[Rfam]
RNA sequence: UAUAGUUACAGCCAGUAAUGGACUGUAUACGCUUGGUCACUGAUACUUUGUAUUAAGCGUACUUUCAAGUACGCCAGUCAAGUGGGAAGAGCAGCUGAUUUUCAGCUGCUCUUUUUUGUCUAU
Dot-bracket structure: ......((((((((....))).)))))..((((((...(((((((.....)))...((((((......))))))))))))))))..((((((((((((...))))))))))))..........

DUF3800-I RNA: a 123-nucleotide RNA. Rfam's curators write: Actinobacteria, Firmicutes, Fusobacteria, Proteobacteria (1 example), Tenericutes (2 examples).